[Rfam]
RNA: MIR390 microRNA precursor family
Organism: Striga hermonthica
RNA sequence: UAGAAGGAUCCGUAAAGCUCAGGAGGGAUAGCGCCAUAGAUAAUUAAUUCACGUAAAAAUCGUCAUCGAUGGCGCUAUCCAUCCUGAGUUUCAUGGCUCCUUCUU
Numbered sequence: 001u002a003g004a005a006g007g008a009u010c011c012g013u014a015a016a017g018c019u020c021a022g023g024a025g026g027g028a029u030a031g032c033g034c035c036a037u038a039g040a041u042a043a044u045u046a047a048u049u050c051a052c053g054u055a056a057a058a059a060u061c062g063u064c065a066u067c068g069a070u071g072g073c074g075c076u077a078u079c080c081a082u083c084c085u086g087a088g089u090u091u092c093a094u095g096g097c098u099c100c101u102u103c104u105u
Stems, first nucleotide, its partner, number of pairs: 010096001016090009026080010